[Rfam]
RNA sequence: GCUAAGUGGAGCAGCGACCACAAAAAACGGGCGGAACCGAAAAGCCAGACGAGUAGGAACAAA
Numbered sequence: 001g002c003u004a005a006g007u008g009g010a011g012c013a014g015c016g017a018c019c020a021c022a023a024a025a026a027a028c029g030g031g032c033g034g035a036a037c038c039g040a041a042a043a044g045c046c047a048g049a050c051g052a053g054u055a056g057g058a059a060c061a062a063a
Stems, first nucleotide, its partner, number of pairs: 006021004030046003037057002

A member of the RNA family "DUF805 RNA" from Chitinophaga japonensis, 63 nucleotides long.